RNA sequence: AAGCUGUAUGUGAGAAUUGGAAGAAAUUAAUCCCCAUCCCAUUGACAUAUAUUGUGUUUCAAGUAUUGGGUUUAAUUUCUUCCAAUAUCUCACCUCCAGCUU
Numbered sequence: 001a002a003g004c005u006g007u008a009u010g011u012g013a014g015a016a017u018u019g020g021a022a023g024a025a026a027u028u029a030a031u032c033c034c035c036a037u038c039c040c041a042u043u044g045a046c047a048u049a050u051a052u053u054g055u056g057u058u059u060c061a062a063g064u065a066u067u068g069g070g071u072u073u074a075a076u077u078u079c080u081u082c083c084a085a086u087a088u089c090u091c092a093c094c095u096c097c098a099g100c101u102u
Base pairs, nucleotide, nucleotide: 004099005098006097008095011092012091013090014089016086017085018084019083020082021081023079024078025077026076027075028074029073030072032070033069
Shown here is a 102-nucleotide RNA sequence from Rosa chinensis, a member of the family "MIR2275 microRNA precursor family". A search with the family's covariance model found it, with a score of 66 bits.